[Rfam]
This 107-nucleotide RNA sequence from Botrytis elliptica belongs to the Rfam family "tRNA". It scores 46 bits against the family's covariance model. NCBI's taxonomy places the organism under Eukaryota, Fungi, Dikarya, leotiomyceta, Botrytis. Its family is annotated with triplet codon-amino acid adaptor activity in the Gene Ontology.
RNA sequence: GGGGCUGUAACUCAGUGGUAGAGUGCCUCGUUUGCAUCUUCAGAUAUCCUUCCCAAGACAUCUGAUUCGUAUCGAUGAAGUCCAGGGUUCGACUCCCUGCCGCUCCA
Numbered sequence: 001g002g003g004g005c006u007g008u009a010a011c012u013c014a015g016u017g018g019u020a021g022a023g024u025g026c027c028u029c030g031u032u033u034g035c036a037u038c039u040u041c042a043g044a045u046a047u048c049c050u051u052c053c054c055a056a057g058a059c060a061u062c063u064g065a066u067u068c069g070u071a072u073c074g075a076u077g078a079a080g081u082c083c084a085g086g087g088u089u090c091g092a093c094u095c096c097c098u099g100c101c102g103c104u105c106c107a
Stems, first nucleotide, its partner, number of pairs: 001106005007100001010024004026077001028075003083099005